[Rfam]
RNA: bZIP non canonical Hac1/Xbp1 intron
RNA sequence: AGAGUCCCCCGACAUGACACAACAUCCUGCAGUGAUGUUGUGUGACCUGCAGUGUCAGUCGCUGGACUUG
Numbered sequence: 001a002g003a004g005u006c007c008c009c010c011g012a013c014a015u016g017a018c019a020c021a022a023c024a025u026c027c028u029g030c031a032g033u034g035a036u037g038u039u040g041u042g043u044g045a046c047c048u049g050c051a052g053u054g055u056c057a058g059u060c061g062c063u064g065g066a067c068u069u070g
Stems, first nucleotide, its partner, number of pairs: 002069006010061004021039006044056003